SAM riboswitch aptamer (S box leader): a 104-nucleotide RNA from Anoxybacillus sp. B7M1.
Its family is annotated with regulation of gene expression in the Gene Ontology.
On this family, see Huang et al., Nucleic Acids Res 2016: "A critical base pair in k-turns determines the conformational class adopted, and correlates with biological function".
Lineage of the source: Bacteria > Bacillati > Bacilli > Caryophanales > Anoxybacillus.
RNA sequence: UUCUUAUCAAGAGAGAGGGAGGGACUGGCCCUGUGAACUCUCAGCAACCUGACCGUAUGUCAAGGUGCUAAUUCCAGACAGGCUUGAUGCUUGGAAGAUAAGAA
Numbered sequence: 001u002u003c004u005u006a007u008c009a010a011g012a013g014a015g016a017g018g019g020a021g022g023g024a025c026u027g028g029c030c031c032u033g034u035g036a037a038c039u040c041u042c043a044g045c046a047a048c049c050u051g052a053c054c055g056u057a058u059g060u061c062a063a064g065g066u067g068c069u070a071a072u073u074c075c076a077g078a079c080a081g082g083c084u085u086g087a088u089g090c091u092u093g094g095a096a097g098a099u100a101a102g103a104a
Base pairs, nucleotide, nucleotide: 001104002103003102004101005100006099007098008097013042014041015040016039017038021031022030023029025077026076027075028074043069044068045067046066048065049064050062051061052060053059073096079093080092081091082090083089